[Rfam]
RNA sequence: UUUCCUCAUUCUUGUAAAUCGCUUUGGAUGAAAGCAUCUGCUAAAUGCCUAAAU
Dot-bracket structure: ............((((....(((((.....)))))...))).)...........
Numbered sequence: 001u002u003u004c005c006u007c008a009u010u011c012u013u014g015u016a017a018a019u020c021g022c023u024u025u026g027g028a029u030g031a032a033a034g035c036a037u038c039u040g041c042u043a044a045a046u047g048c049c050u051a052a053a054u
Stems, first nucleotide, its partner, number of pairs: 013043001014041003021035005
The record is a 54-nucleotide sequence from Triplophysa rosa, which matches "UnaL2 LINE 3' element" in Rfam. Pairs were carried over by alignment from the consensus structure, which is taken from published work. The family's RNA type in Rfam is cis-regulatory element. The literature on the family includes a 2004 paper in RNA by Baba et al., "Solution structure of an RNA stem-loop derived from the 3' conserved region of eel LINE UnaL2". A search with the family's covariance model found it, with a score of 56 bits.